RNA sequence: GCGGGGUCGAUUCGUCCCCCGCCCGUGGCCAUGGCGGGCAUAGAAGGGGAUAAACCGGGCGGAAACGGCCGUAUGGCGAAGC
Numbered sequence: 001g002c003g004g005g006g007u008c009g010a011u012u013c014g015u016c017c018c019c020c021g022c023c024c025g026u027g028g029c030c031a032u033g034g035c036g037g038g039c040a041u042a043g044a045a046g047g048g049g050a051u052a053a054a055c056c057g058g059g060c061g062g063a064a065a066c067g068g069c070c071g072u073a074u075g076g077c078g079a080a081g082c
Stems, first nucleotide, its partner, number of pairs: 001022006056071003060067002

The record is an 82-nucleotide RNA sequence, which matches "RAGATH-28 RNA" in Rfam. By type it is a small RNA. The base pairs follow the family's consensus structure, which is taken from published work.